[Rfam]
RNA sequence: CCCUGACAACUGCAUUGGGCGGUUGACAUUAGCCACGACAGGAGAUUGACAUG
Numbered sequence: 001c002c003c004u005g006a007c008a009a010c011u012g013c014a015u016u017g018g019g020c021g022g023u024u025g026a027c028a029u030u031a032g033c034c035a036c037g038a039c040a041g042g043a044g045a046u047u048g049a050c051a052u053g
Base pairs, nucleotide, nucleotide: 002042003041004040005039007025008024009023010022011021
RNA: Mu-gpT-DE RNA